[Rfam]
RNA sequence: UCUCUGCUGUGAUGAUUUCUGAAUUAAUUCACAUGUCAGACUUCAGAGAUUUAUUUAUUUUAAAUCAAUGAGAAUGAAAAUUCAAAUUAUCUGAGCAGAUC
Numbered sequence: 001u002c003u004c005u006g007c008u009g010u011g012a013u014g015a016u017u018u019c020u021g022a023a024u025u026a027a028u029u030c031a032c033a034u035g036u037c038a039g040a041c042u043u044c045a046g047a048g049a050u051u052u053a054u055u056u057a058u059u060u061u062a063a064a065u066c067a068a069u070g071a072g073a074a075u076g077a078a079a080a081u082u083c084a085a086a087u088u089a090u091c092u093g094a095g096c097a098g099a100u101c
Base pairs, nucleotide, nucleotide: 003099004098005097006096007095048066049065050064051063052062053061
The family of this 101-nucleotide RNA sequence from Malus baccata is "Small nucleolar RNA R64/Z200 family". The family has 14 seed sequences and 748 matches in Rfam 15.1. The family's RNA type in Rfam is C/D-box small nucleolar RNA.